[Rfam]
RNA sequence: ACCCCUGGCUGAAUUAGUGAUCGGUCGGGCUUAUUUUUGGAGUACUUAUGUCACUAAAUGCAGAGAAGAAAGCAGAAAUAGUAAAAGAAUUUGGUCAAGGCGAG
Numbered sequence: 001a002c003c004c005c006u007g008g009c010u011g012a013a014u015u016a017g018u019g020a021u022c023g024g025u026c027g028g029g030c031u032u033a034u035u036u037u038u039g040g041a042g043u044a045c046u047u048a049u050g051u052c053a054c055u056a057a058a059u060g061c062a063g064a065g066a067a068g069a070a071a072g073c074a075g076a077a078a079u080a081g082u083a084a085a086a087g088a089a090u091u092u093g094g095u096c097a098a099g100g101c102g103a104g
Stems, first nucleotide, its partner, number of pairs: 007026006036058005042052001